[Rfam]
RNA sequence: GGCUGAUCCGCAGCAGUUCUUCACUGGCAAGCUUUAUGUCCCUGUGUAUCAGCUAAAGCUGCCAGCUGAAGAACUGCUGCAGCCGGC
Numbered sequence: 001g002g003c004u005g006a007u008c009c010g011c012a013g014c015a016g017u018u019c020u021u022c023a024c025u026g027g028c029a030a031g032c033u034u035u036a037u038g039u040c041c042c043u044g045u046g047u048a049u050c051a052g053c054u055a056a057a058g059c060u061g062c063c064a065g066c067u068g069a070a071g072a073a074c075u076g077c078u079g080c081a082g083c084c085g086g087c
Stems, first nucleotide, its partner, number of pairs: 005084001007082001010080003017073006026063003030060007
Dot-bracket structure: ....(.(..(((....((((((...(((.(((((((.................))))))))))....))))))....))).).)...

Annotation:
A member of the RNA family "mir-22 microRNA precursor family" from Megalops atlanticus, 87 nucleotides long. For this family Rfam cites "Identification of novel genes coding for small expressed RNAs" (Lagos-Quintana et al., Science, 2001). The match comes from Rfam's covariance-model search (88 bits). Rfam links the family to the GO terms miRNA-mediated post-transcriptional gene silencing and RISC complex. The organism belongs to Megalops, within Eukaryota.